[Rfam]
RNA: let-7 microRNA precursor family
RNA sequence: UUGGGGUGAGGUAGUAGGUUGUAUAGUUUUGGGGUGACACCCUUCCUGUUAGAUAACUAUACAACUUACUGUCUUUCCUGA
Number, nucleotide and partner (000 for none) at each position: 001u081002u080003g079004g078005g077006g076007u000008g075009a074010g073011g072012u071013a070014g069015u068016a067017g066018g065019u064020u063021g062022u061023a060024u059025a058026g057027u056028u000029u000030u000031g000032g042033g041034g040035u039036g000037a000038c000039a035040c034041c033042c032043u000044u000045c052046c000047u000048g000049u000050u000051a000052g045053a000054u000055a000056a027057c026058u025059a024060u023061a022062c021063a020064a019065c018066u017067u016068a015069c014070u013071g012072u011073c010074u009075u008076u006077c005078c004079u003080g002081a001